[Rfam]
Background
Rfam assigns this 234-nucleotide RNA from Eumeta japonica to the family "RNase MRP". From the family's description: RNase MRP is an enzymatically active ribonucleoprotein with two distinct roles in eukaryotes. By type it is a ribozyme. Pairs were carried over by alignment from the consensus structure, which is taken from published work.

RNA sequence: AGGUUCUGGCCAGUUCAGCUAACGGGGUCACACACAGAGUUUUUAUAGCUCUCAUCCCUGUGGAAAGUCCCCGGAGGUAGGGCGGAAAGCGCCGUGCCGUGAAGGCGCAAGCCGGGCGCGGCCUGUAGGGGAGGCAGACCUGUGCAGUGCUGCGCCCGCGUAUUGCUCAGAGCAAAGCUAAUGCUGAUGCGGGAUCUCUCCCGGCAACAAAAUGGGGCUUACUCGGUUAGAACU
Numbered sequence: 001a002g003g004u005u006c007u008g009g010c011c012a013g014u015u016c017a018g019c020u021a022a023c024g025g026g027g028u029c030a031c032a033c034a035c036a037g038a039g040u041u042u043u044u045a046u047a048g049c050u051c052u053c054a055u056c057c058c059u060g061u062g063g064a065a066a067g068u069c070c071c072c073g074g075a076g077g078u079a080g081g082g083c084g085g086a087a088a089g090c091g092c093c094g095u096g097c098c099g100u101g102a103a104g105g106c107g108c109a110a111g112c113c114g115g116g117c118g119c120g121g122c123c124u125g126u127a128g129g130g131g132a133g134g135c136a137g138a139c140c141u142g143u144g145c146a147g148u149g150c151u152g153c154g155c156c157c158g159c160g161u162a163u164u165g166c167u168c169a170g171a172g173c174a175a176a177g178c179u180a181a182u183g184c185u186g187a188u189g190c191g192g193g194a195u196c197u198c199u200c201c202c203g204g205c206a207a208c209a210a211a212a213u214g215g216g217g218c219u220u221a222c223u224c225g226g227u228u229a230g231a232a233c234u
Base pairs, nucleotide, nucleotide: 002234003233004232005231006230007229008228009227010226011225015187016186017185018184019183022061023060024059025058026057027056037051038050039049040048041047065220066219067218069217070216071215072214081093082092083091084090094108095107096106097105098104110161113158114157115156116155117154118153119152120151121150122149123147124146125145126144133140134139190203191202192201193200194199